[Rfam]
RNA sequence: GGUUGGUUUGAGUGCAGUGGUAGUUAUAACUAAUUGAUCACAAUCAGUUACAGAUUCCUUUGUUCCUUCUCUACUAUUGCUUUACUUGACCAGUGGGA
Numbered sequence: 001g002g003u004u005g006g007u008u009u010g011a012g013u014g015c016a017g018u019g020g021u022a023g024u025u026a027u028a029a030c031u032a033a034u035u036g037a038u039c040a041c042a043a044u045c046a047g048u049u050a051c052a053g054a055u056u057c058c059u060u061u062g063u064u065c066c067u068u069c070u071c072u073a074c075u076a077u078u079g080c081u082u083u084a085c086u087u088g089a090c091c092a093g094u095g096g097g098a
Stems, first nucleotide, its partner, number of pairs: 002094007010087002014083001016078006028064003032060002
RNA: Y RNA
Organism: Microcebus murinus